The record is a 138-nucleotide sequence from Cervus elaphus, which matches "U4 spliceosomal RNA" in Rfam.
The source organism's lineage runs through Eukaryota, Eumetazoa, Tetrapoda, Cervidae and Cervus elaphus.
The family's RNA type in Rfam is spliceosomal small nuclear RNA.
The match comes from Rfam's covariance-model search (85 bits).

RNA sequence: AGCUUUGCGCAGUGGCAGUAUCAUAGUCAAUGAGGUUUAUCCGAGGCGUGAUUAUUGCUAAUUGAAAACUUUUCCCAAAGAAACAUGACAAUGUAAACAUAUGUUGUAUACAUCGUGUGCCAUAAACCCCAGCUGUUU
Dot-bracket structure: ...................(((((.(((.....((.....))..)))))))).................................((((((((((....)))))))).)).............((((.......))))
Numbered sequence: 001a002g003c004u005u006u007g008c009g010c011a012g013u014g015g016c017a018g019u020a021u022c023a024u025a026g027u028c029a030a031u032g033a034g035g036u037u038u039a040u041c042c043g044a045g046g047c048g049u050g051a052u053u054a055u056u057g058c059u060a061a062u063u064g065a066a067a068a069c070u071u072u073u074c075c076c077a078a079a080g081a082a083a084c085a086u087g088a089c090a091a092u093g094u095a096a097a098c099a100u101a102u103g104u105u106g107u108a109u110a111c112a113u114c115g116u117g118u119g120c121c122a123u124a125a126a127c128c129c130c131a132g133c134u135g136u137u138u
Stems, first nucleotide, its partner, number of pairs: 020052005026047003034042002086110002088107008124138004